Rfam assigns this 211-nucleotide sequence from Deinococcus ruber to the family "FMN riboswitch aptamer (RFN element)". Its family is annotated with FMN binding in the Gene Ontology. Lineage of the source: Bacteria > Thermotogati > Deinococci > Deinococcaceae > Deinococcus. Pairs were carried over by alignment from the consensus structure, which is taken from published work.
RNA sequence: GCCAUCCUUCGGGGCCGGGUGAAAUUCCCGACCGGCGGUGAUCGGUGAAGCGUCAGCGCUUUGCCACAGCCCGCGAAGCCAGGAGACUUUGCAGCAUCCUCCAGGCCCGAUCCGGUGAAAUUCCGGGGCCGACGGUACACCGCGAAACGCUUUAAAGCGACUCUGCUUAAAGCGCCUCUUCGCGGGACAGUCCGGAUGAGAGAAGGAGGAU
Numbered sequence: 001g002c003c004a005u006c007c008u009u010c011g012g013g014g015c016c017g018g019g020u021g022a023a024a025u026u027c028c029c030g031a032c033c034g035g036c037g038g039u040g041a042u043c044g045g046u047g048a049a050g051c052g053u054c055a056g057c058g059c060u061u062u063g064c065c066a067c068a069g070c071c072c073g074c075g076a077a078g079c080c081a082g083g084a085g086a087c088u089u090u091g092c093a094g095c096a097u098c099c100u101c102c103a104g105g106c107c108c109g110a111u112c113c114g115g116u117g118a119a120a121u122u123c124c125g126g127g128g129c130c131g132a133c134g135g136u137a138c139a140c141c142g143c144g145a146a147a148c149g150c151u152u153u154a155a156a157g158c159g160a161c162u163c164u165g166c167u168u169a170a171a172g173c174g175c176c177u178c179u180u181c182g183c184g185g186g187a188c189a190g191u192c193c194g195g196a197u198g199a200g201a202g203a204a205g206g207a208g209g210a211u
Stems, first nucleotide, its partner, number of pairs: 003209001005207006017029003033131002035074004069129002078106002111127005133194003